[Rfam]
RNA sequence: CGAUUAGGUAGAGGCUGCAUUGCUUAUCAGUCACACACGAGAGAAUGACAUCUAUGACCGUGCGUAAAAGGAAGCUUUGCCGAAGUUUGAUGGGAUCGUCGAAUCCAUCAGGCUGGGGUCAUUCCAAAUAGGGAUGGCACUGUCAUAUGUCUAGAUAGACAUAUGAUGAGCUACAAAUCGU
Numbered sequence: 001c002g003a004u005u006a007g008g009u010a011g012a013g014g015c016u017g018c019a020u021u022g023c024u025u026a027u028c029a030g031u032c033a034c035a036c037a038c039g040a041g042a043g044a045a046u047g048a049c050a051u052c053u054a055u056g057a058c059c060g061u062g063c064g065u066a067a068a069a070g071g072a073a074g075c076u077u078u079g080c081c082g083a084a085g086u087u088u089g090a091u092g093g094g095a096u097c098g099u100c101g102a103a104u105c106c107a108u109c110a111g112g113c114u115g116g117g118g119u120c121a122u123u124c125c126a127a128a129u130a131g132g133g134a135u136g137g138c139a140c141u142g143u144c145a146u147a148u149g150u151c152u153a154g155a156u157a158g159a160c161a162u163a164u165g166a167u168g169a170g171c172u173a174c175a176a177a178u179c180g181u
Base pairs, nucleotide, nucleotide: 008174009173010172011171017080018079019078022075023074024073025072033065034064036062037061038060039059084114085113086112087111088110089109090108091107092106093105094104115141116140118138119137120136121135122134123133124132125131143166144165145164146163147162148161149160
Dot-bracket structure: .......((((.....(((..((((.......((.((((...................)))).))......))))..)))...(((((((((((.........)))))))))))((.((((((((.....)))))))).)).(((((((..........)))))))....)))).......
Rfam assigns this 181-nucleotide RNA from Filibacter tadaridae to the family "Lysine riboswitch aptamer".
The literature on the family includes a 2003 paper in Proc Natl Acad Sci U S A by Grundy et al., "The L box regulon: Lysine sensing by leader RNAs of bacterial lysine biosynthesis genes".
Riboswitches are metabolite binding domains within certain messenger RNAs that serve as precision sensors for their corresponding targets. Allosteric rearrangement of mRNA structure is mediated by ligand binding, and this results in modulation of gene expression. This family includes riboswitches that sense lysine in a number of genes involved in lysine metabolism, including lysC.
Taxonomically the source falls in Filibacter (Bacteria, Bacillota, Caryophanales, Caryophanaceae).
It scores 111 bits against the family's covariance model.
Rfam links the family to the GO term lysine biosynthetic process.